[Rfam]
RNA sequence: GUGAGGAGCAGGACUUAGCUCGCUCUGUGAACAGAUCUCAGAAAGGCCAUGUUCACAGUGGCUAAGUUCCGCCCCCCCC
Numbered sequence: 001g002u003g004a005g006g007a008g009c010a011g012g013a014c015u016u017a018g019c020u021c022g023c024u025c026u027g028u029g030a031a032c033a034g035a036u037c038u039c040a041g042a043a044a045g046g047c048c049a050u051g052u053u054c055a056c057a058g059u060g061g062c063u064a065a066g067u068u069c070c071g072c073c074c075c076c077c078c079c
Stems, first nucleotide, its partner, number of pairs: 011069010027056007
RNA: mir-27 microRNA precursor family
Organism: Denticeps clupeoides